[Rfam]
RNA: mir-16 microRNA precursor family
RNA sequence: GUCAGGCCGUAGCAGCACAUCAUUACUGGUAGUUCUCUGUGCAUUGCCAGUAUGAUAUGUGCUGCUUCCGCCAGAC
Number, nucleotide and partner (000 for none) at each position: 001g076002u075003c074004a000005g072006g071007c070008c000009g000010u000011a066012g065013c064014a063015g062016c061017a060018c059019a000020u000021c000022a000023u000024u052025a051026c050027u049028g048029g047030u046031a045032g044033u043034u000035c000036u000037c000038u000039g000040u000041g000042c000043a033044u032045u031046g030047c029048c028049a027050g026051u025052a024053u000054g000055a000056u000057a000058u000059g018060u017061g016062c015063u014064g013065c012066u011067u000068c000069c000070g007071c006072c005073a000074g003075a002076c001